Rfam assigns this 397-nucleotide sequence from Bifidobacterium breve to the family "transfer-messenger RNA".
Rfam describes the family as follows. Bacterial tmRNA, also known as 10Sa RNA or SsrA, is named for its dual tRNA and mRNA-like properties.
Gene Ontology term of the family: RNA catabolic process.

RNA sequence: GGGGUCGAUCGGUUUCGACGGUGACCUGUUCGCUGCAGGGAAGCGUGCCGAGAACGCCGGGUCCGCUCGUGGAUGACCCCGGCAAAAGAAUAAGUGCUAAAUCUAACCGCACUGAGUUCGCUCUCGCUGCCUGAUUUUUAGUCAGGAUUAACCAGUGAGCAGCCGCUCCGUUCACUCCUCUUCGUCUUUGGGAGGAUGCUGAGCGUCGUUAAGAAGACUUGCUGAUGGAGUUGAGCCUCAGGGCUCCAUCAGGACUUUUACUGCGGAUAUGCUCGCCAUCAGUUGUCUGCGACAGCGAUGGGGGCAGAAAAACCGCCAACUUGGCCAGCAGACUACGCACGUAGAAGACUGUGGGCUCGGUCAUCGGACCGGGGUUCGAUUCCCCGCGACUCCACGA
Numbered sequence: 001g002g003g004g005u006c007g008a009u010c011g012g013u014u015u016c017g018a019c020g021g022u023g024a025c026c027u028g029u030u031c032g033c034u035g036c037a038g039g040g041a042a043g044c045g046u047g048c049c050g051a052g053a054a055c056g057c058c059g060g061g062u063c064c065g066c067u068c069g070u071g072g073a074u075g076a077c078c079c080c081g082g083c084a085a086a087a088g089a090a091u092a093a094g095u096g097c098u099a100a101a102u103c104u105a106a107c108c109g110c111a112c113u114g115a116g117u118u119c120g121c122u123c124u125c126g127c128u129g130c131c132u133g134a135u136u137u138u139u140a141g142u143c144a145g146g147a148u149u150a151a152c153c154a155g156u157g158a159g160c161a162g163c164c165g166c167u168c169c170g171u172u173c174a175c176u177c178c179u180c181u182u183c184g185u186c187u188u189u190g191g192g193a194g195g196a197u198g199c200u201g202a203g204c205g206u207c208g209u210u211a212a213g214a215a216g217a218c219u220u221g222c223u224g225a226u227g228g229a230g231u232u233g234a235g236c237c238u239c240a241g242g243g244c245u246c247c248a249u250c251a252g253g254a255c256u257u258u259u260a261c262u263g264c265g266g267a268u269a270u271g272c273u274c275g276c277c278a279u280c281a282g283u284u285g286u287c288u289g290c291g292a293c294a295g296c297g298a299u300g301g302g303g304g305c306a307g308a309a310a311a312a313c314c315g316c317c318a319a320c321u322u323g324g325c326c327a328g329c330a331g332a333c334u335a336c337g338c339a340c341g342u343a344g345a346a347g348a349c350u351g352u353g354g355g356c357u358c359g360g361u362c363a364u365c366g367g368a369c370c371g372g373g374g375u376u377c378g379a380u381u382c383c384c385c386g387c388g389a390c391u392c393c394a395c396g397a
Base pairs, nucleotide, nucleotide: 001393002392003391004390005389006388007387019366020365021364022363023362024361025360026359028357033354034353035352036351037350038349044341045340046339047338048337049069050068051067052066056083057082058081059080060079061078124158125157126156127155128154129153169205170204171203172202173201174200176196177195178194179193180192181191182190184218185217186216187215188214189213222252223251224250225249226248227247228246229245230244234268236266237265239263270306271305272304273303274302276301277300278299279298282293283292285333286332287331288330370386371385372384373383374382